[Rfam]
RNA sequence: CUAUUACCAAAUCCUAUCUUCACCUCCACGUGGUGACUGCUGGGAGCUCUUUCUUAACAAAAAGCUGCAGAAGGAGAAGG
Numbered sequence: 001c002u003a004u005u006a007c008c009a010a011a012u013c014c015u016a017u018c019u020u021c022a023c024c025u026c027c028a029c030g031u032g033g034u035g036a037c038u039g040c041u042g043g044g045a046g047c048u049c050u051u052u053c054u055u056a057a058c059a060a061a062a063a064g065c066u067g068c069a070g071a072a073g074g075a076g077a078a079g080g
Base pairs, nucleotide, nucleotide: 013080014079015078017076019074020073022034023033024032045066046065047064048063050061051060052059

About this RNA
The family of this 80-nucleotide RNA sequence from Hermetia illucens is "drz-agam-1 ribozyme". Pairs were carried over by alignment from the consensus structure, which is taken from published work. Rfam links the family to the GO term catalytic activity. The organism belongs to Hermetia, within Eukaryota. It scores 42 bits against the family's covariance model.